[Rfam]
RNA sequence: GUGGUAGAUGUUCGUAACCCUCCAUCUUUAAAAAACUAGGCCAUU
Numbered sequence: 001g002u003g004g005u006a007g008a009u010g011u012u013c014g015u016a017a018c019c020c021u022c023c024a025u026c027u028u029u030a031a032a033a034a035a036c037u038a039g040g041c042c043a044u045u
Stems, first nucleotide, its partner, number of pairs: 006027005015038002